RNA sequence: GAAUCCAGGUUAGGCAAGAUGUUGGCAUAGCUGAGUGAACUCUAACAUCAGCUGUGUCGCAUGGUGCCACCAUUUGGGUUC
Numbered sequence: 001g002a003a004u005c006c007a008g009g010u011u012a013g014g015c016a017a018g019a020u021g022u023u024g025g026c027a028u029a030g031c032u033g034a035g036u037g038a039a040c041u042c043u044a045a046c047a048u049c050a051g052c053u054g055u056g057u058c059g060c061a062u063g064g065u066g067c068c069a070c071c072a073u074u075u076g077g078g079u080u081c
Stems, first nucleotide, its partner, number of pairs: 005076001007074002013068004019062003023059009

The record is an 81-nucleotide RNA sequence from Pomacea canaliculata, which matches "mir-31 microRNA precursor family" in Rfam.